L2-Alphaproteobacteria ribosomal protein leader: a 76-nucleotide RNA. By type it is a cis-regulatory leader.

[Rfam]
RNA sequence: GGCCACCUUCGGGGGGCUUACACAUAGGCGGGCCCCUGGCAACCAGGCCCCGCCGCUAGCAAACGGAAGACAGAAA
Numbered sequence: 001g002g003c004c005a006c007c008u009u010c011g012g013g014g015g016g017c018u019u020a021c022a023c024a025u026a027g028g029c030g031g032g033c034c035c036c037u038g039g040c041a042a043c044c045a046g047g048c049c050c051c052g053c054c055g056c057u058a059g060c061a062a063a064c065g066g067a068a069g070a071c072a073g074a075a076a
Stems, first nucleotide, its partner, number of pairs: 001018004006014003027054005038049002